[Rfam]
RNA: Phenylalanine leader peptide
Organism: Pantoea vagans
RNA sequence: CAUGAAACAUUUACCGUUCUUCUUCGCAUUCUUUUUUACCUUCCCCUGAUUGGGAGGCGAUUCGUCAUGUGAAAAUGAAUGCGAAGACGAACAACAAAGCCUCCCAACCGGGAGGCUUUUUUAUU
Numbered sequence: 001c002a003u004g005a006a007a008c009a010u011u012u013a014c015c016g017u018u019c020u021u022c023u024u025c026g027c028a029u030u031c032u033u034u035u036u037u038a039c040c041u042u043c044c045c046c047u048g049a050u051u052g053g054g055a056g057g058c059g060a061u062u063c064g065u066c067a068u069g070u071g072a073a074a075a076u077g078a079a080u081g082c083g084a085a086g087a088c089g090a091a092c093a094a095c096a097a098a099g100c101c102u103c104c105c106a107a108c109c110g111g112g113a114g115g116c117u118u119u120u121u122u123a124u125u
Stems, first nucleotide, its partner, number of pairs: 016092004021087011033075002036072004042055004056066004096119010
Dot-bracket structure: ...............((((.(((((((((((.((.((((..((((......))))((((...))))..)))).)).))))))))))).))))...((((((((((....))))))))))......